Rfam assigns this 100-nucleotide RNA sequence from Neodrepanis coruscans to the family "Small nucleolar RNA SNORD16". Lineage of the source: Eukaryota > Bilateria > Craniata > Neoaves > Neodrepanis. Rfam 15.1 lists 1,321 matches to the family in 655 species. Its Rfam clan is "SNORD16 clan". For this family Rfam cites "RNomics: an experimental approach that identifies 201 candidates for novel, small, non-messenger RNAs in mouse" (Huttenhofer et al., EMBO J, 2001).

[Rfam]
RNA sequence: UGCUGUGACGACGUCAUUUGCGUCUUACCCGGUGCUCAGCGACAGUCGCCUGCUGUCCGGGGCUGGCACUGCCGAGCUGACGACUCCUUCCCUCUGAGCA
Numbered sequence: 001u002g003c004u005g006u007g008a009c010g011a012c013g014u015c016a017u018u019u020g021c022g023u024c025u026u027a028c029c030c031g032g033u034g035c036u037c038a039g040c041g042a043c044a045g046u047c048g049c050c051u052g053c054u055g056u057c058c059g060g061g062g063c064u065g066g067c068a069c070u071g072c073c074g075a076g077c078u079g080a081c082g083a084c085u086c087c088u089u090c091c092c093u094c095u096g097a098g099c100a
Base pairs, nucleotide, nucleotide: 001100002099003098021082022081023080024079030071031070032069033068034067039063040062041057042056043055044054045053